[Rfam]
RNA sequence: GCCGCAACCAUUUAGUGGAUGGCUAGGUUCAGAACGCUGAUGAAGGGCGUGGUCAGCUGCGAAAAGCUCCGGCGAGGCGCAUGCAACCUGAGAACCGGAGAUCCCCGAAUGGGACAUCCCAUAUACUCCGUAAGGAGAAGGAACUUCCCGAAGUGAAACAUCUCAGUAGGGAAAGGAAAAGAAAGCAAACCGCGAUGCCGUUAGUAAGGGCGACCGAAACCGGCAGAGAGCAAACUGAAUCCCGCAAGGGAGAUGUGGUGUUAGGAUGCAAGCAACUACAAUGCAGACGAAGGUGAAGUCUCCUGGAAUGGUACACCAGAGAGGGUGACAGUCCCGUAACUGUAAGUCCGCUGCGUAGGCGUGUAUUCCAGAGUAGUGCGGGUUUGAUAUCUCGCAUGAAUGUGGGAGACACUAACUCCCAACUCUAAAUACGUUCUGAAACCGAUAGCGCAGUAGUACCGUGAGGGAAAGCUGAAAAGUACCCUGGAAGGGGGGUGCAAAGAGCCUGAACCUAAAUGGUGACGAUUG
Numbered sequence: 001g002c003c004g005c006a007a008c009c010a011u012u013u014a015g016u017g018g019a020u021g022g023c024u025a026g027g028u029u030c031a032g033a034a035c036g037c038u039g040a041u042g043a044a045g046g047g048c049g050u051g052g053u054c055a056g057c058u059g060c061g062a063a064a065a066g067c068u069c070c071g072g073c074g075a076g077g078c079g080c081a082u083g084c085a086a087c088c089u090g091a092g093a094a095c096c097g098g099a100g101a102u103c104c105c106c107g108a109a110u111g112g113g114a115c116a117u118c119c120c121a122u123a124u125a126c127u128c129c130g131u132a133a134g135g136a137g138a139a140g141g142a143a144c145u146u147c148c149c150g151a152a153g154u155g156a157a158a159c160a161u162c163u164c165a166g167u168a169g170g171g172a173a174a175g176g177a178a179a180a181g182a183a184a185g186c187a188a189a190c191c192g193c194g195a196u197g198c199c200g201u202u203a204g205u206a207a208g209g210g211c212g213a214c215c216g217a218a219a220c221c222g223g224c225a226g227a228g229a230g231c232a233a234a235c236u237g238a239a240u241c242c243c244g245c246a247a248g249g250g251a252g253a254u255g256u257g258g259u260g261u262u263a264g265g266a267u268g269c270a271a272g273c274a275a276c277u278a279c280a281a282u283g284c285a286g287a288c289g290a291a292g293g294u295g296a297a298g299u300c301u302c303c304u305g306g307a308a309u310g311g312u313a314c315a316c317c318a319g320a321g322a323g324g325g326u327g328a329c330a331g332u333c334c335c336g337u338a339a340c341u342g343u344a345a346g347u348c349c350g351c352u353g354c355g356u357a358g359g360c361g362u363g364u365a366u367u368c369c370a371g372a373g374u375a376g377u378g379c380g381g382g383u384u385u386g387a388u389a390u391c392u393c394g395c396a397u398g399a400a401u402g403u404g405g406g407a408g409a410c411a412c413u414a415a416c417u418c419c420c421a422a423c424u425c426u427a428a429a430u431a432c433g434u435u436c437u438g439a440a441a442c443c444g445a446u447a448g449c450g451c452a453g454u455a456g457u458a459c460c461g462u463g464a465g466g467g468a469a470a471g472c473u474g475a476a477a478a479g480u481a482c483c484c485u486g487g488a489a490g491g492g493g494g495g496u497g498c499a500a501a502g503a504g505c506c507u508g509a510a511c512c513u514a515a516a517u518g519g520u521g522a523c524g525a526u527u528g
Base pairs, nucleotide, nucleotide: 007520008519009518010517011516012515013514014513015512021506022472023471026443027442028440029439030438031437032436033435035433036432045106046105047104048061049060050059067100068099069098070097071096072095076088077087111120112119113118126137127136128135129134144175145173146172147171148170149169155162156161185193186192197224198223199222200221208214227426228425229424230423235258236257237256240251241250242249243248266364267363268362269361276358277357278356279355292341293340294339298314302311303310317321323335324334325333376397377396378395379394380393381392382391404420405419406418407417408416459466460465
Background
A member of the RNA family "Archaeal large subunit ribosomal RNA" from a Theionarchaea archaeon, 528 nucleotides of a longer RNA. Pairs were carried over by alignment from the consensus structure, which is taken from published work. Rfam links the family to the GO terms structural constituent of ribosome and ribosome. A search with the family's covariance model found it, with a score of 2800 bits. Taxonomically the source falls in Theionarchaea (Archaea, Methanobacteriati, Methanobacteriota).